[Rfam]
RNA sequence: AUGGGGGCUCCAAAGUGCUGUUCGUGCAGGUAGUGCAUUGCCUGACCUACUGCUGAGCUAGCACUUCCCGAGCCCCCAG
Numbered sequence: 001a002u003g004g005g006g007g008c009u010c011c012a013a014a015g016u017g018c019u020g021u022u023c024g025u026g027c028a029g030g031u032a033g034u035g036c037a038u039u040g041c042c043u044g045a046c047c048u049a050c051u052g053c054u055g056a057g058c059u060a061g062c063a064c065u066u067c068c069c070g071a072g073c074c075c076c077c078a079g
Stems, first nucleotide, its partner, number of pairs: 004076004009071002013066008022057001026053002029051005

Background
This 79-nucleotide RNA sequence from Rattus norvegicus belongs to the Rfam family "mir-17 microRNA precursor family". Rfam's curators write: This family represents the microRNA (miRNA) precursor mir-17, family, which includes mir-20, mir-91, and mir-103. miRNAs are transcribed as ~70nt precursors (modelled here) and subsequently processed by the Dicer enzyme to give a ~22nt product. In this case the mature sequence comes from the 3' arm of the precursor. The extents of the hairpin precursors are not generally known and are estimated based on hairpin prediction. Rfam links the family to the GO terms RISC complex and miRNA-mediated post-transcriptional gene silencing.